[Rfam]
RNA sequence: UUGAAGAAUUUAAAAACUCCAACUUGCAGGAUUAAAGAAUUUGAAGACUUCAACUUGCAGAAUUGGAGAAUUUGAAGACUUCAACU
Numbered sequence: 001u002u003g004a005a006g007a008a009u010u011u012a013a014a015a016a017c018u019c020c021a022a023c024u025u026g027c028a029g030g031a032u033u034a035a036a037g038a039a040u041u042u043g044a045a046g047a048c049u050u051c052a053a054c055u056u057g058c059a060g061a062a063u064u065g066g067a068g069a070a071u072u073u074g075a076a077g078a079c080u081u082c083a084a085c086u
Base pairs, nucleotide, nucleotide: 001084002083003082004081005080006079009076010075011074012073013072014071017068018067019066020065021064025059026058027057028056032053033052035050036049037048
This 86-nucleotide RNA sequence from Solanum tuberosum belongs to the Rfam family "MIR8024 microRNA precursor family".
The family's consensus secondary structure was predicted with RNAalifold.
Rfam links the family to the GO terms miRNA-mediated post-transcriptional gene silencing and RISC complex.